[Rfam]
RNA sequence: GCCAUAAGAAGCUCACCCAUGAGGGGCUGUGGUCCCUGGGAAGGUCUGAGAGACAAGACAGUAAAGGCUCUAGCAGGGCCCAUUUCUCUGAAGGGAGUGGGGGGACACCAGAAAAUUAACGUGCCCUGCUUGUUGUUAAUGCCUUUGAUGGCUGGUUGUUGAUUCCCAACAACCAACUGGAGGUCAAAGCAAUAAGUUUGGCUGGAAGAUCCCCUGUCUGGCUUAGUUAAGUUGGAUGAGUGAGGUGGUUGUGGCCAUAACUCAAUUCAGACUAUUCUCUUGUGGU
Numbered sequence: 001g002c003c004a005u006a007a008g009a010a011g012c013u014c015a016c017c018c019a020u021g022a023g024g025g026g027c028u029g030u031g032g033u034c035c036c037u038g039g040g041a042a043g044g045u046c047u048g049a050g051a052g053a054c055a056a057g058a059c060a061g062u063a064a065a066g067g068c069u070c071u072a073g074c075a076g077g078g079c080c081c082a083u084u085u086c087u088c089u090g091a092a093g094g095g096a097g098u099g100g101g102g103g104g105a106c107a108c109c110a111g112a113a114a115a116u117u118a119a120c121g122u123g124c125c126c127u128g129c130u131u132g133u134u135g136u137u138a139a140u141g142c143c144u145u146u147g148a149u150g151g152c153u154g155g156u157u158g159u160u161g162a163u164u165c166c167c168a169a170c171a172a173c174c175a176a177c178u179g180g181a182g183g184u185c186a187a188a189g190c191a192a193u194a195a196g197u198u199u200g201g202c203u204g205g206a207a208g209a210u211c212c213c214c215u216g217u218c219u220g221g222c223u224u225a226g227u228u229a230a231g232u233u234g235g236a237u238g239a240g241u242g243a244g245g246u247g248g249u250u251g252u253g254g255c256c257a258u259a260a261c262u263c264a265a266u267u268c269a270g271a272c273u274a275u276u277c278u279c280u281u282g283u284g285g286u
Stems, first nucleotide, its partner, number of pairs: 001286004007280003012244005018238001022037005046270005056219004066080005084099001086097004100215006120200002245258005
RNA: Nuclear RNase P